[Rfam]
RNA sequence: AAACUUACCUGGCUGGGGGGCUUUCGUGAUCACAAAGGCGGAAACCCCAUGGUGAGAUGCGGUCAUUGCACUUUUUGGCUGUGUUGACCCGUGUGGCAGCUCCGAGUUGGGGUUCGCUAACAGCUAAAUUUUUGCGUGAGGGGCUGCGUUCGCGCGGCCCCGC
Numbered sequence: 001a002a003a004c005u006u007a008c009c010u011g012g013c014u015g016g017g018g019g020g021c022u023u024u025c026g027u028g029a030u031c032a033c034a035a036a037g038g039c040g041g042a043a044a045c046c047c048c049a050u051g052g053u054g055a056g057a058u059g060c061g062g063u064c065a066u067u068g069c070a071c072u073u074u075u076u077g078g079c080u081g082u083g084u085u086g087a088c089c090c091g092u093g094u095g096g097c098a099g100c101u102c103c104g105a106g107u108u109g110g111g112g113u114u115c116g117c118u119a120a121c122a123g124c125u126a127a128a129u130u131u132u133u134g135c136g137u138g139a140g141g142g143g144c145u146g147c148g149u150u151c152g153c154g155c156g157g158c159c160c161c162g163c
Stems, first nucleotide, its partner, number of pairs: 012124004016048004023042005049092004054088001056085003060081005094119003098114002101110002140161004145156004
The family of this 163-nucleotide sequence from Mesorhabditis belari is "U1 spliceosomal RNA". Lineage of the source: Eukaryota > Metazoa > Eumetazoa > Rhabditidae > Mesorhabditis. For this family Rfam cites "The uRNA database" (Zwieb, Nucleic Acids Res, 1997). The match comes from Rfam's covariance-model search (114 bits). It is annotated as a spliceosomal small nuclear RNA.